[Rfam]
RNA sequence: CUGUAUCUGUCAGGAGAGCGCCUGACUUGUUUCAUGUCCCAUGAACCAAGUCAGGCCGCCGAAGGCGCAGGCGGUGGCCACACCGCUGAACGCUCAGGCAAAAGGACUGACAAAGCGUC
Numbered sequence: 001c002u003g004u005a006u007c008u009g010u011c012a013g014g015a016g017a018g019c020g021c022c023u024g025a026c027u028u029g030u031u032u033c034a035u036g037u038c039c040c041a042u043g044a045a046c047c048a049a050g051u052c053a054g055g056c057c058g059c060c061g062a063a064g065g066c067g068c069a070g071g072c073g074g075u076g077g078c079c080a081c082a083c084c085g086c087u088g089a090a091c092g093c094u095c096a097g098g099c100a101a102a103a104g105g106a107c108u109g110a111c112a113a114a115g116c117g118u119c
Base pairs, nucleotide, nucleotide: 006114008112009111010110011109012108013107020056021055022054023053024052025051026050027049028048029047058099059098060097061095062094065093066092067091071086072085073084074083075082076081
Rfam assigns this 119-nucleotide RNA from Limnohabitans radicicola to the family "Glycine riboswitch aptamer". A search with the family's covariance model found it, with a score of 56 bits.